[Rfam]
RNA sequence: ACGGCGGCGACGCCGAGUCCGCGUCCGCGCGGAGCCGGGGAACCAGCGCGAUCGACGCCCGGACCGGCCGGUCCGCGUCGCUUCGCAGGGGUGAAUCGGCGCCUCGCCACGAGGCGCCGUAGGGCGUCUUCCAUGCCCGAAUCCGUCAGCUAACCCGGUAGGCGGCAUGGAAGGAGUA
Numbered sequence: 001a002c003g004g005c006g007g008c009g010a011c012g013c014c015g016a017g018u019c020c021g022c023g024u025c026c027g028c029g030c031g032g033a034g035c036c037g038g039g040g041a042a043c044c045a046g047c048g049c050g051a052u053c054g055a056c057g058c059c060c061g062g063a064c065c066g067g068c069c070g071g072u073c074c075g076c077g078u079c080g081c082u083u084c085g086c087a088g089g090g091g092u093g094a095a096u097c098g099g100c101g102c103c104u105c106g107c108c109a110c111g112a113g114g115c116g117c118c119g120u121a122g123g124g125c126g127u128c129u130u131c132c133a134u135g136c137c138c139g140a141a142u143c144c145g146u147c148a149g150c151u152a153a154c155c156c157g158g159u160a161g162g163c164g165g166c167a168u169g170g171a172a173g174g175a176g177u178a
Stems, first nucleotide, its partner, number of pairs: 011164004018033005034159006044088001089144003097119010122138004